Rfam assigns this 95-nucleotide sequence from Folsomia candida to the family "mir-210 microRNA precursor family". The base pairs follow the family's consensus structure, which was predicted with WAR. The family has 26 seed sequences and 790 matches in Rfam 15.1. A search with the family's covariance model found it, with a score of 52 bits. On this family, see Cai et al., Proc Natl Acad Sci U S A 2005: "Kaposi's sarcoma-associated herpesvirus expresses an array of viral microRNAs in latently infected cells".

[Rfam]
RNA sequence: GUGUUGUCCAUAAAAGCUACUGUACAUUGCUCAGGAUUGUUUUUAAACUCUUGUGCGUGUGACAGCGGCUAUUUUGGCUCAACGAUAGCGACAGG
Numbered sequence: 001g002u003g004u005u006g007u008c009c010a011u012a013a014a015a016g017c018u019a020c021u022g023u024a025c026a027u028u029g030c031u032c033a034g035g036a037u038u039g040u041u042u043u044u045a046a047a048c049u050c051u052u053g054u055g056c057g058u059g060u061g062a063c064a065g066c067g068g069c070u071a072u073u074u075u076g077g078c079u080c081a082a083c084g085a086u087a088g089c090g091a092c093a094g095g
Base pairs, nucleotide, nucleotide: 005081006080008077009076010075012073015070016069017068018067020065021064022063025059026058028057029056030055032053033052035050036049

Its family is annotated with RISC complex and miRNA-mediated post-transcriptional gene silencing in the Gene Ontology.